[Rfam]
Shown here is a 61-nucleotide RNA from Pterocles burchelli, a member of the family "Selenocysteine insertion sequence 1".
Taxonomically the source falls in Pterocles (Eukaryota, Sauropsida, Columbimorphae, Pteroclidae).
Rfam links the family to the GO term selenocysteine incorporation.
A search with the family's covariance model found it, with a score of 44 bits.
The base pairs follow the family's consensus structure, which is taken from published work.
About the family: The incorporation of selenocysteine into a protein sequence is directed by an in-frame UGA codon (usually a stop codon) within the coding region of the mRNA. Selenoprotein mRNAs contain a conserved secondary structure in the 3' UTR that is required for the distinction of UGA stop from UGA selenocysteine. The selenocysteine insertion sequence (SECIS) is around 60 nt in length and adopts a hairpin structure which is sufficiently well-defined and conserved to act as a computational screen for selenoprotein genes.
RNA sequence: GUGUGCUUAUGAAGAUCGCUAACGAAAGAGUAACUCAGUUGGCGUUCAGAUGCCCUCACAC
Numbered sequence: 001g002u003g004u005g006c007u008u009a010u011g012a013a014g015a016u017c018g019c020u021a022a023c024g025a026a027a028g029a030g031u032a033a034c035u036c037a038g039u040u041g042g043c044g045u046u047c048a049g050a051u052g053c054c055c056u057c058a059c060a061c
Stems, first nucleotide, its partner, number of pairs: 001061005014047002017044007028036003